A member of the RNA family "Purine riboswitch aptamer" from Neobacillus bataviensis, 102 nucleotides long. It scores 89 bits against the family's covariance model. The base pairs follow the family's consensus structure, which is taken from published work. About the family: Riboswitches are metabolite binding domains within certain messenger RNAs that serve as precision sensors for their corresponding targets. The literature on the family includes a 2003 paper in Cell by Mandal et al., "Riboswitches Control Fundamental Biochemical Pathways in Bacillus subtilis and Other Bacteria".
Nucleotides: 102
Stems, first nucleotide, its partner, number of pairs: 018088002021085005031047005058078007
Number, partner (000 for none) and nucleotide at each position: 001000a002000a003000g004000g005000a006000a007000c008000u009000u010000a011000u012000a013000u014000a015000a016000u017000u018088g019087c020000a021085u022084c023083g024082u025081a026000u027000a028000a029000a030000g031047u032046u033045g034044g035043g036000a037000a038000u039000a040000u041000g042000g043035c044034c045033c046032a047031a048000a049000a050000g051000u052000u053000u054000c055000u056000a057000c058078c059077g060076a061075g062074c063073c064072a065000c066000c067000g068000u069000a070000a071000a072064u073063g074062g075061c076060u077059u078058g079000a080000c081025u082024a083023c084022g085021a086000g087019g088018c089000a090000g091000u092000g093000u094000u095000u096000u097000g098000a099000a100000u101000a102000a